[Rfam]
RNA sequence: UGCUUUUUUCGCCCAGGCGGAGCUCGACCGCAAAUUCAAGUGAACGCGUUCAUCGACAGGCACCGCGAAGUGCAUGGGGUCAAGCCGAUCUGCAGGACGUUGCAGGUCGCCCCG
Numbered sequence: 001u002g003c004u005u006u007u008u009u010c011g012c013c014c015a016g017g018c019g020g021a022g023c024u025c026g027a028c029c030g031c032a033a034a035u036u037c038a039a040g041u042g043a044a045c046g047c048g049u050u051c052a053u054c055g056a057c058a059g060g061c062a063c064c065g066c067g068a069a070g071u072g073c074a075u076g077g078g079g080u081c082a083a084g085c086c087g088a089u090c091u092g093c094a095g096g097a098c099g100u101u102g103c104a105g106g107u108c109g110c111c112c113c114g
Stems, first nucleotide, its partner, number of pairs: 017031004075114005086109002089106007
A member of the RNA family "ALIL pseudoknot" from Comamonas flocculans, 114 nucleotides long. It scores 98 bits against the family's covariance model. It is annotated as a cis-regulatory element. On this family, see Mazauric et al., J Biol Chem 2008: "Apical loop-internal loop RNA pseudoknots: a new type of stimulator of -1 translational frameshifting in bacteria".